Rfam assigns this 130-nucleotide RNA from Hibiscus syriacus to the family "Small nucleolar RNA snoR74".
Gene Ontology terms of the family: RNA processing and nucleolus.
It scores 83 bits against the family's covariance model.
Lineage of the source: Eukaryota > Streptophytina > malvids > Malvaceae > Hibiscus.
[Rfam]
RNA sequence: AAAAUAGUAGGCUUUGUUGUCUUUUGUGAACUAGGUUCUCGUAAACUUCAGGAAAAUUACUUGUGCAUUGUUCUUGGGUGAACCUCUGGCUUUAUUGGUGCCUGAAGGUUCAGUAAAUGAUGUUAAUUUU
Numbered sequence: 001a002a003a004a005u006a007g008u009a010g011g012c013u014u015u016g017u018u019g020u021c022u023u024u025u026g027u028g029a030a031c032u033a034g035g036u037u038c039u040c041g042u043a044a045a046c047u048u049c050a051g052g053a054a055a056a057u058u059a060c061u062u063g064u065g066c067a068u069u070g071u072u073c074u075u076g077g078g079u080g081a082a083c084c085u086c087u088g089g090c091u092u093u094a095u096u097g098g099u100g101c102c103u104g105a106a107g108g109u110u111c112a113g114u115a116a117a118u119g120a121u122g123u124u125a126a127u128u129u130u
Stems, first nucleotide, its partner, number of pairs: 006047002011037001014034002016031001065123008079112007